[Rfam]
RNA sequence: GGUCACGAGUGUCAGUGAAACAGCCCCGGCUUACUGACCGGCAACCCUCCACCGCGGUGGGGUGCCCCGGGUGAGGACCAGGCGCGAACCACAAUGGUUCGCAGCAAGCGCGGGUC
Numbered sequence: 001g002g003u004c005a006c007g008a009g010u011g012u013c014a015g016u017g018a019a020a021c022a023g024c025c026c027c028g029g030c031u032u033a034c035u036g037a038c039c040g041g042c043a044a045c046c047c048u049c050c051a052c053c054g055c056g057g058u059g060g061g062g063u064g065c066c067c068c069g070g071g072u073g074a075g076g077a078c079c080a081g082g083c084g085c086g087a088a089c090c091a092c093a094a095u096g097g098u099u100c101g102c103a104g105c106a107a108g109c110g111c112g113g114g115u116c
Stems, first nucleotide, its partner, number of pairs: 001079004009039001011038006022031002040066003045062003049057002082105002084102008
RNA: SAM (S-adenosyl methionine) riboswitch aptamer
Organism: Auritidibacter sp. NML120636